[Rfam]
RNA sequence: AGAGACUUUAAGUUUGAGGCCACAGCAGAAAUGUUCGUGGCACGGCCCUGUCAGAUUCCAACAAAUCUGUUAAUUCUGCU
Number, nucleotide and partner (000 for none) at each position: 001a000002g000003a000004g000005a000006c000007u000008u000009u000010a000011a000012g000013u000014u000015u000016g048017a000018g047019g046020c045021c044022a000023c000024a080025g079026c078027a077028g076029a075030a074031a000032u042033g041034u000035u000036c000037g000038u000039g000040g000041c033042a032043c000044g021045g020046c019047c018048c016049u000050g000051u000052c069053a068054g067055a066056u065057u064058c000059c000060a000061a000062c000063a000064a057065a056066u055067c054068u053069g052070u000071u000072a000073a000074u030075u029076c028077u027078g026079c025080u024

The family of this 80-nucleotide sequence from Alligator mississippiensis is "Mammalian CPEB3 ribozyme". Taxonomically the source falls in Alligator (Eukaryota, Craniata, Sauria, Archosauria). A search with the family's covariance model found it, with a score of 49 bits.